This 132-nucleotide RNA sequence from Castor canadensis belongs to the Rfam family "Small nucleolar RNA SNORA49". NCBI's taxonomy places the organism under Eukaryota, Opisthokonta, Theria, Euarchontoglires, Castor.
[Rfam]
RNA sequence: UGUCCUCAUCCUUACUCCAGGGGCUCUUUGUUGUAGAGUGCCCUGGCAUUGCCUGAGGAUAGAGGAGAAAGCACUUCUCCCUCCCCAGCAAGACUCUGCUUUCUUGUGGGGCCUACAGAUUGAGCUGACAAG
Dot-bracket structure: ..((((((..(.....(((((((((((.......))))).))))))....)..))))))..........(((.(........(((((..((((........)))).)))))..........).)))......
Numbered sequence: 001u002g003u004c005c006u007c008a009u010c011c012u013u014a015c016u017c018c019a020g021g022g023g024c025u026c027u028u029u030g031u032u033g034u035a036g037a038g039u040g041c042c043c044u045g046g047c048a049u050u051g052c053c054u055g056a057g058g059a060u061a062g063a064g065g066a067g068a069a070a071g072c073a074c075u076u077c078u079c080c081c082u083c084c085c086c087a088g089c090a091a092g093a094c095u096c097u098g099c100u101u102u103c104u105u106g107u108g109g110g111g112c113c114u115a116c117a118g119a120u121u122g123a124g125c126u127g128a129c130a131a132g
Stems, first nucleotide, its partner, number of pairs: 003059006011051001017046006023039005070126003074122001083111005090105004
The match comes from Rfam's covariance-model search (136 bits). Rfam describes the family as follows. The snoRNA ACA49 has no identified RNA target. NB genomic sequence 1-nt different from published. The base pairs follow the family's consensus structure, which was predicted with RNAalifold.